[Rfam]
RNA: U2 spliceosomal RNA
RNA sequence: GUGGCUUCUCAGCCUUUUAGCUAAGAUCAAGCAUACUAUUUGUUCUUAUCAGUUUAAUCUCUGGUAUGUCCUCUACCCAAGGGCAGUAUAUCAAACGGAUUUCUGGAGCAGGAAAUGGAAUAGGAGCUUGCUCUGUCCACUCCACGCAUCAAUCCGGAAUUGCAGUACCUCCAGUAAUGGUGUACCCCCU
Numbered sequence: 001g002u003g004g005c006u007u008c009u010c011a012g013c014c015u016u017u018u019a020g021c022u023a024a025g026a027u028c029a030a031g032c033a034u035a036c037u038a039u040u041u042g043u044u045c046u047u048a049u050c051a052g053u054u055u056a057a058u059c060u061c062u063g064g065u066a067u068g069u070c071c072u073c074u075a076c077c078c079a080a081g082g083g084c085a086g087u088a089u090a091u092c093a094a095a096c097g098g099a100u101u102u103c104u105g106g107a108g109c110a111g112g113a114a115a116u117g118g119a120a121u122a123g124g125a126g127c128u129u130g131c132u133c134u135g136u137c138c139a140c141u142c143c144a145c146g147c148a149u150c151a152a153u154c155c156g157g158a159a160u161u162g163c164a165g166u167a168c169c170u171c172c173a174g175u176a177a178u179g180g181u182g183u184a185c186c187c188c189c190u
Stems, first nucleotide, its partner, number of pairs: 007026003011022003047066006068084005112143001114141001116139004123134004146183006154174001156172003